[Rfam]
RNA sequence: AGCAGUAGGAGACUUGUCGCUGGGCAGAUCCACUUGUGGUAUGCCGAGAGGAAAGUCCGGGCAACACAGAGCACCAUACUUCCUAACGGGAAGACGUCGUGAGGCGUAUUAGUGUAACAGAAAAUGACCGCCGGCUCGUCCGGUAAGGGUGAAAAGGUGAGGUAAGAGCUCACCGGGGAAGUAGUGAUACUGACUGCCGUACACAUUAUGGGUUGUAAGAUCAUGUAUACCGACGCUGUAGGGUUGCUCGCCCGAUGUCGAGGGGUAGAUCGCUAGAGAUGCAGGGCGACCUGCAUAGUAGAUAAAUGACAAGGUUUGGGAUCAGGCUCGCCUGCUCCGAGAUAACAGAACCCGGCUUACACCCUACUGCCUUUC
Number, nucleotide and partner (000 for none) at each position: 001a000002g370003c369004a368005g367006u366007a365008g364009g363010a000011g360012a000013c313014u312015u311016g310017u309018c308019g000020c048021u047022g000023g045024g044025c043026a042027g000028a040029u039030c038031c000032a000033c000034u000035u000036g000037u000038g030039g029040u028041a000042u026043g025044c024045c023046g000047a021048g020049a000050g000051g000052a000053a358054a357055g356056u000057c355058c354059g353060g352061g351062c215063a214064a213065c212066a000067c000068a000069g249070a248071g247072c246073a000074c211075c210076a209077u208078a207079c093080u092081u091082c090083c089084u000085a000086a000087c000088g000089g083090g082091a081092a080093g079094a107095c106096g105097u104098c103099g000100u000101g000102a000103g098104g097105c096106g095107u094108a206109u205110u000111a000112g204113u203114g202115u201116a200117a000118c000119a000120g000121a000122a000123a000124a000125u000126g000127a000128c148129c147130g144131c143132c142133g141134g140135c000136u000137c000138g000139u000140c134141c133142g132143g131144u130145a000146a000147g129148g128149g000150u000151g000152a000153a000154a000155a000156g174157g173158u172159g171160a170161g169162g000163u000164a000165a000166g000167a000168g000169c161170u160171c159172a158173c157174c156175g197176g195177g194178g000179a000180a191181g190182u189183a188184g000185u000186g000187a000188u183189a182190c181191u180192g000193a000194c177195u176196g000197c175198c000199g000200u116201a115202c114203a113204c112205a109206u108207u078208a077209u076210g075211g074212g065213u064214u063215g062216u000217a000218a000219g271220a270221u269222c268223a000224u000225g000226u000227a000228u000229a000230c000231c260232g259233a258234c257235g000236c000237u000238g000239u000240a000241g253242g252243g251244u250245u000246g072247c071248u070249c069250g244251c243252c242253c241254g000255a000256u000257g234258u233259c232260g231261a000262g000263g000264g000265g000266u000267a000268g222269a221270u220271c219272g000273c000274u000275a000276g000277a000278g000279a296280u295281g294282c293283a292284g291285g290286g000287c000288g000289a000290c285291c284292u283293g282294c281295a280296u279297a000298g000299u000300a000301g000302a000303u000304a000305a000306a000307u000308g018309a017310c016311a015312a014313g013314g000315u000316u000317u000318g000319g000320g000321a000322u000323c000324a000325g000326g000327c000328u000329c000330g000331c000332c000333u000334g000335c000336u000337c000338c000339g000340a000341g000342a000343u000344a000345a000346c000347a000348g000349a000350a000351c061352c060353c059354g058355g057356c055357u054358u053359a000360c011361a000362c000363c009364c008365u007366a006367c005368u004369g003370c002371c000372u000373u000374u000375c000